A member of the RNA family "7SK RNA" from Irena cyanogastra, 301 nucleotides long.
The family's RNA type in Rfam is non-coding RNA gene.
7SK was discovered as an abundant small nuclear RNA in the mid-70s but a possible function has only recently been suggested. Two independent studies have found that 7SK RNA binds the CDK9/cyclin T complex (known as elongation factor P-TEFb). P-TEFb activates transcription by phosphorylating the C-terminal domain of RNA polymerase II. This process is negatively regulated by the 7SK RNP. The secondary structure of 7SK RNA shown here was proposed by Wasserman and Steitz on the basis of chemical modification and enzymatic cleavage experiments.
It scores 84 bits against the family's covariance model.
The family's consensus secondary structure is taken from published work.
[Rfam]
RNA sequence: UGAGGAAGGUUAAUCUGGCUGUGAGAUCUGAUAUGCCAUUGAUUGUGUGGGUCUGAUCUGGCUGAUCUGGCUAGCUUAGGCGGGUGUUCUCUUUCUUCCUUGACAUUAGUGUGUGCUCCUCCUGAUGCUGUGUGCUUGGUUAAUGAGGACAGCCUCCUCAAUAGGCAUGGCAUUGUUCAUUUGUCCAAGGUGUGGUAGCUGUGCUCCCCUGCUGGAAGCUCUAAGUGAGCUCGAGAUCUGUUUGUAGAUCACACACAGAAUUCACAGAAUGACUGGGGUGGAAGGGACCUUCAAGAUCAUU
Numbered sequence: 001u002g003a004g005g006a007a008g009g010u011u012a013a014u015c016u017g018g019c020u021g022u023g024a025g026a027u028c029u030g031a032u033a034u035g036c037c038a039u040u041g042a043u044u045g046u047g048u049g050g051g052u053c054u055g056a057u058c059u060g061g062c063u064g065a066u067c068u069g070g071c072u073a074g075c076u077u078a079g080g081c082g083g084g085u086g087u088u089c090u091c092u093u094u095c096u097u098c099c100u101u102g103a104c105a106u107u108a109g110u111g112u113g114u115g116c117u118c119c120u121c122c123u124g125a126u127g128c129u130g131u132g133u134g135c136u137u138g139g140u141u142a143a144u145g146a147g148g149a150c151a152g153c154c155u156c157c158u159c160a161a162u163a164g165g166c167a168u169g170g171c172a173u174u175g176u177u178c179a180u181u182u183g184u185c186c187a188a189g190g191u192g193u194g195g196u197a198g199c200u201g202u203g204c205u206c207c208c209c210u211g212c213u214g215g216a217a218g219c220u221c222u223a224a225g226u227g228a229g230c231u232c233g234a235g236a237u238c239u240g241u242u243u244g245u246a247g248a249u250c251a252c253a254c255a256c257a258g259a260a261u262u263c264a265c266a267g268a269a270u271g272a273c274u275g276g277g278g279u280g281g282a283a284g285g286g287a288c289c290u291u292c293a294a295g296a297u298c299a300u301u
Stems, first nucleotide, its partner, number of pairs: 001108003006101004012094002017091002023088002026085005032079001034074001036070003041067004045062002116170002120165002122139004127135002140161002147157003198288001199286002204281002207278005220268003225265005